[Rfam]
This 447-nucleotide part of an RNA from Methanomassiliicoccales archaeon RumEn M2 belongs to the Rfam family "Archaeal large subunit ribosomal RNA". The family is grouped with related families in Rfam's "LSU clan". Its family is annotated with ribosome and structural constituent of ribosome in the Gene Ontology. The family's consensus secondary structure is taken from published work. It scores 2741 bits against the family's covariance model. Taxonomically the source falls in Methanomassiliicoccales (Archaea, Methanobacteriati, Thermoplasmatota, Thermoplasmata).
RNA sequence: CCCCCUGAAACUAUUCGCAGAUAGACCUCGACUGAGGCAGAUCGUGAGGUAGAGCCACUGAUUGGAUGCUUAGGGGAAGAAAUUCCUCGGUGUUCUGUCAAACUCCGAAUAUGCGAUUACCGUAGACGUCGGGAGUGAGGCCAUCCGGGGUAAGCUCGAUGGCCGUGAGGGAAACAACCCAGACUAGAGUUAAGGUCCCUAAAUAUCGGUUAAGUGUAAUAUGAAAUGGCGUCGGCAGUCUAAAACAACCGGGAGGUGGGCUUAGAAGCAGCCAUCCUUCAAAGAUAGCGUAACAGCUCACCGGUCGAGAUUGUGGGCCCAAAAAAUGGACGGGGCUAAAACCGGUUACCGAUACUCUAGAACACAGCAAUGUGAUUUCGUAAGGGGGCGUGGUGCAUGGGCAGAAGUGGGGCCGUGAGGUCCUGUGGACCGUGUACCAAUGAGGAU
Numbered sequence: 001c002c003c004c005c006u007g008a009a010a011c012u013a014u015u016c017g018c019a020g021a022u023a024g025a026c027c028u029c030g031a032c033u034g035a036g037g038c039a040g041a042u043c044g045u046g047a048g049g050u051a052g053a054g055c056c057a058c059u060g061a062u063u064g065g066a067u068g069c070u071u072a073g074g075g076g077a078a079g080a081a082a083u084u085c086c087u088c089g090g091u092g093u094u095c096u097g098u099c100a101a102a103c104u105c106c107g108a109a110u111a112u113g114c115g116a117u118u119a120c121c122g123u124a125g126a127c128g129u130c131g132g133g134a135g136u137g138a139g140g141c142c143a144u145c146c147g148g149g150g151u152a153a154g155c156u157c158g159a160u161g162g163c164c165g166u167g168a169g170g171g172a173a174a175c176a177a178c179c180c181a182g183a184c185u186a187g188a189g190u191u192a193a194g195g196u197c198c199c200u201a202a203a204u205a206u207c208g209g210u211u212a213a214g215u216g217u218a219a220u221a222u223g224a225a226a227u228g229g230c231g232u233c234g235g236c237a238g239u240c241u242a243a244a245a246c247a248a249c250c251g252g253g254a255g256g257u258g259g260g261c262u263u264a265g266a267a268g269c270a271g272c273c274a275u276c277c278u279u280c281a282a283a284g285a286u287a288g289c290g291u292a293a294c295a296g297c298u299c300a301c302c303g304g305u306c307g308a309g310a311u312u313g314u315g316g317g318c319c320c321a322a323a324a325a326a327u328g329g330a331c332g333g334g335g336c337u338a339a340a341a342c343c344g345g346u347u348a349c350c351g352a353u354a355c356u357c358u359a360g361a362a363c364a365c366a367g368c369a370a371u372g373u374g375a376u377u378u379c380g381u382a383a384g385g386g387g388g389c390g391u392g393g394u395g396c397a398u399g400g401g402c403a404g405a406a407g408u409g410g411g412g413c414c415g416u417g418a419g420g421u422c423c424u425g426u427g428g429a430c431c432g433u434g435u436a437c438c439a440a441u442g443a444g445g446a447u
Stems, first nucleotide, its partner, number of pairs: 001388006011024005026135001027133006036121002040118007052106001053104002060099003064095006073088006139164007147157002169180003184360007194350003203347001205346006227321003231318003235314006248305005254278003259273003279283001284299001288297002361378002363374004389442001391439010407426008